The family of this 120-nucleotide sequence from Medicago truncatula is "MIR1509 microRNA precursor family". Rfam links the family to the GO terms RISC complex and miRNA-mediated post-transcriptional gene silencing. The family's consensus secondary structure was predicted with RNAalifold. Taxonomically the source falls in Medicago (Eukaryota, Viridiplantae, Streptophyta, Trifolieae).

RNA sequence: UGAUCCAUUGCAUUUUUUUAAUCAAAGAAAUUACACUUGAGUGAUUGAGUACGAUCAAUUCUAUAUCCUCUUCAUCUUUUUUCAAGUGUAUUUCCUUGAUUAAAGAAAUUCAUUGGAUCG
Numbered sequence: 001u002g003a004u005c006c007a008u009u010g011c012a013u014u015u016u017u018u019u020a021a022u023c024a025a026a027g028a029a030a031u032u033a034c035a036c037u038u039g040a041g042u043g044a045u046u047g048a049g050u051a052c053g054a055u056c057a058a059u060u061c062u063a064u065a066u067c068c069u070c071u072u073c074a075u076c077u078u079u080u081u082u083c084a085a086g087u088g089u090a091u092u093u094c095c096u097u098g099a100u101u102a103a104a105g106a107a108a109u110u111c112a113u114u115g116g117a118u119c120g
Stems, first nucleotide, its partner, number of pairs: 001120007012109002016105010027094004032090006039083003